[Rfam]
RNA sequence: UGACUGCGAUGAAGUGGAAGGUUGCUGAUACACCCGGCCGCUUUGCCAUGGCGAGUGUCAGGAAAUUUCCACGGAGAAUGUCUAUUUUUAAAAUAGGCGAAGA
Numbered sequence: 001u002g003a004c005u006g007c008g009a010u011g012a013a014g015u016g017g018a019a020g021g022u023u024g025c026u027g028a029u030a031c032a033c034c035c036g037g038c039c040g041c042u043u044u045g046c047c048a049u050g051g052c053g054a055g056u057g058u059c060a061g062g063a064a065a066u067u068u069c070c071a072c073g074g075a076g077a078a079u080g081u082c083u084a085u086u087u088u089u090a091a092a093a094u095a096g097g098c099g100a101a102g103a
Stems, first nucleotide, its partner, number of pairs: 014072003019068003025061007079102001081100002086097003
Rfam assigns this 103-nucleotide RNA sequence from Thermaerobacillus caldiproteolyticus to the family "S10-Clostridia ribosomal protein leader".
A search with the family's covariance model found it, with a score of 42 bits.
The organism belongs to Thermaerobacillus, within Bacteria.
The family's RNA type in Rfam is cis-regulatory leader.